Shown here is a 48-nucleotide RNA sequence from Rhodobacterales bacterium HTCC2255, a member of the family "SAM/SAH riboswitch aptamer". Taxonomically the source falls in Rhodobacterales (Bacteria, Pseudomonadati, Pseudomonadota, Alphaproteobacteria). Rfam links the family to the GO terms S-adenosylmethionine metabolic process and regulation of gene expression. The sequence is in the family's curated seed alignment.
RNA sequence: UAAGGCUUACAACGGCUACCUGAAGUAAGUUGACAUAAAAACGGAGCA
Numbered sequence: 001u002a003a004g005g006c007u008u009a010c011a012a013c014g015g016c017u018a019c020c021u022g023a024a025g026u027a028a029g030u031u032g033a034c035a036u037a038a039a040a041a042c043g044g045a046g047c048a
Stems, first nucleotide, its partner, number of pairs: 004031007013022002015047003019044002
Dot-bracket structure: ...(((((((..(([[[.[[))..)))))))...........]]]]].